[Rfam]
RNA sequence: UCUGGAGAUGAUUGUCCAAACGCAAUUCUUGUGUCUACAAAUAUCAAUCCAGGAGUUGUGGAUGGACAUCACACCCCUGA
Numbered sequence: 001u002c003u004g005g006a007g008a009u010g011a012u013u014g015u016c017c018a019a020a021c022g023c024a025a026u027u028c029u030u031g032u033g034u035c036u037a038c039a040a041a042u043a044u045c046a047a048u049c050c051a052g053g054a055g056u057u058g059u060g061g062a063u064g065g066a067c068a069u070c071a072c073a074c075c076c077c078u079g080a
Base pairs, nucleotide, nucleotide: 002079004077005076007074009071010070011069012068014067015066016065017064018063021060022059023058024057025056026055027054028053029052030051031050

Rfam assigns this 80-nucleotide RNA sequence from Megalops atlanticus to the family "mir-219 microRNA precursor family". For this family Rfam cites "Vertebrate microRNA genes" (Lim et al., Science, 2003). The family's consensus secondary structure was predicted with RNAalifold. Its family is annotated with RISC complex and miRNA-mediated post-transcriptional gene silencing in the Gene Ontology. Lineage of the source: Eukaryota > Metazoa > Bilateria > Craniata > Megalops.